[Rfam]
RNA sequence: UUCAAUGUUGUCAAUGAUGCAUCCUUAAUGCAACUGAGUUUAAGUGAUCUAACUCAAAUUCGUCACUACCACUGAGACAACGUUGAG
Numbered sequence: 001u002u003c004a005a006u007g008u009u010g011u012c013a014a015u016g017a018u019g020c021a022u023c024c025u026u027a028a029u030g031c032a033a034c035u036g037a038g039u040u041u042a043a044g045u046g047a048u049c050u051a052a053c054u055c056a057a058a059u060u061c062g063u064c065a066c067u068a069c070c071a072c073u074g075a076g077a078c079a080a081c082g083u084u085g086a087g
Stems, first nucleotide, its partner, number of pairs: 001087012
A member of the RNA family "Small nucleolar RNA SNORD70" from Cavia porcellus, 87 nucleotides long.
The literature on the family includes a 2001 paper in EMBO J by Huttenhofer et al., "RNomics: an experimental approach that identifies 201 candidates for novel, small, non-messenger RNAs in mouse".
The pairing is the family consensus, mapped onto this sequence.
Rfam's curators put it in the seed alignment.
Rfam describes the family as follows. snoRNA HBII-234 belongs to the C/D family of snoRNAs. It is the human orthologue of the mouse MBII-234 and is predicted to guide 2'O-ribose methylation of the small 18S rRNA on position A512. It is hosted, together with HBII-95, by the core C/D box snoRNA protein encoding gene NOP5/NOP58.